Description:
The record is a 300-nucleotide RNA from Capnocytophaga cynodegmi, which matches "Bacterial RNase P class A" in Rfam. The match comes from Rfam's covariance-model search (210 bits). It is annotated as a ribozyme. NCBI's taxonomy places the organism under Bacteria, Pseudomonadati, Bacteroidota, Flavobacteriaceae, Capnocytophaga. The base pairs follow the family's consensus structure, which is taken from published work.
RNA sequence: AGAGUAAAUCGGCUUAUCGCUAUUUUAUAGAGGAAAGUCCGGACACCAAAGAGCAACAUAACGGGUAACGCCCGUCCAUCGUGAGAUGAGGACAAGUGCAACAGAAAGCAAGUACAGUUCGGCUGUAGUGAAAUCAGGUAAACUCUAUGUGGUGCAACGCUAUGUAAACCAGCUUUUUAGGAUUGCUCGUCCGAUGUUGGAGGGUAGGCGGUUCGAAUUUGUAAGUAAUUACAAAUCAAGAUAAAUGAUAAGCAUCUUGUUCAUCAAGAAACAGAAUCCGGCUUAUGAUUUGCUCUCUUU
Numbered sequence: 001a002g003a004g005u006a007a008a009u010c011g012g013c014u015u016a017u018c019g020c021u022a023u024u025u026u027a028u029a030g031a032g033g034a035a036a037g038u039c040c041g042g043a044c045a046c047c048a049a050a051g052a053g054c055a056a057c058a059u060a061a062c063g064g065g066u067a068a069c070g071c072c073c074g075u076c077c078a079u080c081g082u083g084a085g086a087u088g089a090g091g092a093c094a095a096g097u098g099c100a101a102c103a104g105a106a107a108g109c110a111a112g113u114a115c116a117g118u119u120c121g122g123c124u125g126u127a128g129u130g131a132a133a134u135c136a137g138g139u140a141a142a143c144u145c146u147a148u149g150u151g152g153u154g155c156a157a158c159g160c161u162a163u164g165u166a167a168a169c170c171a172g173c174u175u176u177u178u179a180g181g182a183u184u185g186c187u188c189g190u191c192c193g194a195u196g197u198u199g200g201a202g203g204g205u206a207g208g209c210g211g212u213u214c215g216a217a218u219u220u221g222u223a224a225g226u227a228a229u230u231a232c233a234a235a236u237c238a239a240g241a242u243a244a245a246u247g248a249u250a251a252g253c254a255u256c257u258u259g260u261u262c263a264u265c266a267a268g269a270a271a272c273a274g275a276a277u278c279c280g281g282c283u284u285a286u287g288a289u290u291u292g293c294u295c296u297c298u299u300u
Stems, first nucleotide, its partner, number of pairs: 001296011012253007020030004035284003039281005044154004051188004056150005061075005076090001077088004091145002096143002098139002113127006158210004169200005180192004217236008